Record summary
A member of the RNA family "U11 spliceosomal RNA" from Branchiostoma belcheri, 130 nucleotides long. Pairs were carried over by alignment from the consensus structure, which is taken from published work. Taxonomically the source falls in Branchiostoma (Eukaryota, Eumetazoa, Bilateria, Cephalochordata). By type it is a spliceosomal small nuclear RNA.
RNA sequence: AAAAAGGGCAUUUACCGUCAUUGGUACUCAGGCUGCUUUGCGGCGCCUGGGCGGAAUCGCCAUCCAGGGAUUUCGGAUGCAUAAUCUUUGGGAACAGAGGCUGUUGGUUGCCACUAGCACCGACGCCCAC
Number, nucleotide and partner (000 for none) at each position: 001a000002a000003a000004a000005a000006g000007g000008g080009c079010a078011u077012u076013u026014a025015c024016c023017g022018u000019c000020a000021u000022u017023g016024g015025u014026a013027c051028u050029c049030a048031g047032g046033c045034u042035g041036c040037u000038u000039u000040g036041c035042g034043g000044c000045g033046c032047c031048u030049g029050g028051g027052c075053g074054g073055a072056a071057u070058c069059g000060c000061c000062a000063u000064c000065c000066a000067g000068g000069g058070a057071u056072u055073u054074c053075g052076g012077a011078u010079g009080c008081a000082u000083a000084a000085u000086c000087u000088u000089u000090g000091g000092g000093a000094a000095c000096a000097g000098a000099g127100g126101c125102u000103g124104u123105u122106g121107g120108u000109u119110g118111c117112c000113a000114c000115u000116a000117g111118c110119a109120c107121c106122g105123a104124c103125g101126c100127c099128c000129a000130c000